The family of this 168-nucleotide RNA sequence from Polarella glacialis is "ACEA small nucleolar RNA U3". A reference for the family is Zwieb (1997), "The uRNA database", Nucleic Acids Res. Taxonomically the source falls in Polarella (Eukaryota, Alveolata, Suessiales, Suessiaceae). Rfam 15.1 lists 2,156 matches to the family in 132 species. Pairs were carried over by alignment from the consensus structure, which is taken from published work. From the family's description: Small nucleolar RNAs (snoRNAs) are involved in the processing and modification of rRNA in the nucleolus. A search with the family's covariance model found it, with a score of 63 bits. Rfam classes the family as a C/D-box small nucleolar RNA.
RNA sequence: UCGACUGCACUUGCACAGGAUCACUUCUACAGUGAUUCCUCUUGCAUACAUGUCAUAACAAAGAGCUUCACAGCAUCUCUGAUGAUGUCGAUCUCUGCACUGAUAAGGAAUUUGCUGGAGCUUGCUCCCAGCUUGAUGGAAGCUAUCAGCGCAGUCUUCUGAAGAGAU
Numbered sequence: 001u002c003g004a005c006u007g008c009a010c011u012u013g014c015a016c017a018g019g020a021u022c023a024c025u026u027c028u029a030c031a032g033u034g035a036u037u038c039c040u041c042u043u044g045c046a047u048a049c050a051u052g053u054c055a056u057a058a059c060a061a062a063g064a065g066c067u068u069c070a071c072a073g074c075a076u077c078u079c080u081g082a083u084g085a086u087g088u089c090g091a092u093c094u095c096u097g098c099a100c101u102g103a104u105a106a107g108g109a110a111u112u113u114g115c116u117g118g119a120g121c122u123u124g125c126u127c128c129c130a131g132c133u134u135g136a137u138g139g140a141a142g143c144u145a146u147c148a149g150c151g152c153a154g155u156c157u158u159c160u161g162a163a164g165a166g167a168u
Stems, first nucleotide, its partner, number of pairs: 003039001006035001008034004017028004046068001050067001053064002076167005095154004100149006107128003131143004